[Rfam]
RNA sequence: GCCGUGCCUAUCCAUCGGCUGAUCCCCGAGGGAGAAAACCGGGCCCCUUCACCCGGCUGGCGCGGCACCCCAAACGAAGG
Numbered sequence: 001g002c003c004g005u006g007c008c009u010a011u012c013c014a015u016c017g018g019c020u021g022a023u024c025c026c027c028g029a030g031g032g033a034g035a036a037a038a039c040c041g042g043g044c045c046c047c048u049u050c051a052c053c054c055g056g057c058u059g060g061c062g063c064g065g066c067a068c069c070c071c072a073a074a075c076g077a078a079g080g
Stems, first nucleotide, its partner, number of pairs: 001066008011033003039056005046080005
Dot-bracket structure: ((((((((..(((.................))).....(((((..[[[[[.)))))..)))))))).........]]]]]

Rfam assigns this 80-nucleotide sequence to the family "int-alpA RNA". The sequence is in the family's curated seed alignment. Rfam classes the family as a small RNA. Acidobacteria (1 example), Planctomycetes (1 example), Proteobacteria. Rfam 15.1 lists 577 matches to the family in 491 species.